The record is a 168-nucleotide sequence from Enterococcus faecalis, which matches "Enterococcus sRNA B11" in Rfam. By type it is a small RNA. The sequence is in the family's curated seed alignment.
RNA sequence: GGCAACUUGCCUCCGAUUGGGGGUGCUGUUUAUGUACGAACUUAUGUCUUUGGUUAUUGCCCCACUUUUUGUGGGUCUAGUAAUCUUACUAGUUGACCAUUGGUUAGAUGAUUAGCAGAUAACCAUGCAAGUUGUCCUAGCCCACACGUCUAUCCGCAAGACGAAAAA
Dot-bracket structure: ((((((((..((((....))))((((.......)))).............(((((((((((((((.....))))).((((((....))))))((((((...)))))).......))).)))))))...))))))))..........(((((.......))))).....